[Rfam]
RNA sequence: CAGGCCGAGGGGCGCUGCGACGGGGACGACCCGCCACGCUCGGACUGGAAACACCGACACAAGGGCGCCUCCGAGAU
Numbered sequence: 001c002a003g004g005c006c007g008a009g010g011g012g013c014g015c016u017g018c019g020a021c022g023g024g025g026a027c028g029a030c031c032c033g034c035c036a037c038g039c040u041c042g043g044a045c046u047g048g049a050a051a052c053a054c055c056g057a058c059a060c061a062a063g064g065g066c067g068c069c070u071c072c073g074a075g076a077u
Stems, first nucleotide, its partner, number of pairs: 002046002005043004021033004
The family of this 77-nucleotide RNA from Couchioplanes caeruleus is "SAH (S-adenosyl-L-homocysteine) riboswitch aptamer". Lineage of the source: Bacteria > Actinomycetota > Micromonosporales > Micromonosporaceae > Couchioplanes caeruleus. Pairs were carried over by alignment from the consensus structure, which is taken from published work. A search with the family's covariance model found it, with a score of 41 bits.